Background:
This 74-nucleotide RNA sequence from Cupriavidus metallidurans belongs to the Rfam family "SAH (S-adenosyl-L-homocysteine) riboswitch aptamer". The sequence is in the family's curated seed alignment. Lineage of the source: Bacteria > Pseudomonadota > Burkholderiales > Cupriavidus > Cupriavidus metallidurans.
Nucleotides: 074
Stems, first nucleotide, its partner, number of pairs: 002052001004050005021039004026034001
Number, partner (000 for none) and nucleotide at each position: 001000c002052a003000c004050u005049c006048c007047g008046a009000g010000g011000a012000g013000c014000g015000u016000u017000g018000c019000a020000a021039c022038g023037g024036a025000u026034g027000g028000c029000c030000u031000c032000g033000c034026c035000u036024u037023c038022c039021g040000c041000c042000a043000g044000g045000c046008u047007c048006g049005g050004a051000a052002u053000g054000u055000u056000u057000c058000a059000a060000c061000g062000g063000c064000g065000c066000u067000c068000g069000c070000a071000g072000u073000u074000c